This 72-nucleotide RNA sequence from Methanobrevibacter thaueri belongs to the Rfam family "tRNA".
RNA sequence: GGACCGGUGGUCUAGGGGUAUGAUUCCUCUUUGACGUGGAGGAGAUCACGAGUUCGAAUCUCGUUCGGUCCA
Numbered sequence: 001g002g003a004c005c006g007g008u009g010g011u012c013u014a015g016g017g018g019u020a021u022g023a024u025u026c027c028u029c030u031u032u033g034a035c036g037u038g039g040a041g042g043a044g045a046u047c048a049c050g051a052g053u054u055c056g057a058a059u060c061u062c063g064u065u066c067g068g069u070c071c072a
Stems, first nucleotide, its partner, number of pairs: 001071007010024003026042005048064005
Dot-bracket structure: (((((((..(((.........))).(((((.......))))).....(((((.......)))))))))))).

Pairs were carried over by alignment from the consensus structure, which is taken from published work.